[Rfam]
RNA sequence: CUACUCUUAUACAGAAUGAAAUCCUAGUGUAUGAAGGUAUAAGUAAUUCAUACAUUCGC
Numbered sequence: 001c002u003a004c005u006c007u008u009a010u011a012c013a014g015a016a017u018g019a020a021a022u023c024c025u026a027g028u029g030u031a032u033g034a035a036g037g038u039a040u041a042a043g044u045a046a047u048u049c050a051u052a053c054a055u056u057c058g059c
Stems, first nucleotide, its partner, number of pairs: 007042006028054008